[Rfam]
RNA sequence: AAUUCAGUUGGUAAGAACAAAGAGAAGCAGAUCUAUUCUAUACCCAAUAAGUACCAAUAUGCAAUGGGG
Numbered sequence: 001a002a003u004u005c006a007g008u009u010g011g012u013a014a015g016a017a018c019a020a021a022g023a024g025a026a027g028c029a030g031a032u033c034u035a036u037u038c039u040a041u042a043c044c045c046a047a048u049a050a051g052u053a054c055c056a057a058u059a060u061g062c063a064a065u066g067g068g069g
Stems, first nucleotide, its partner, number of pairs: 003022002007018003043068003051060003
Dot-bracket structure: ..((..(((......)))..))....................(((.....(((....))).....))).
RNA: Plastid-clpP 5UTR RNA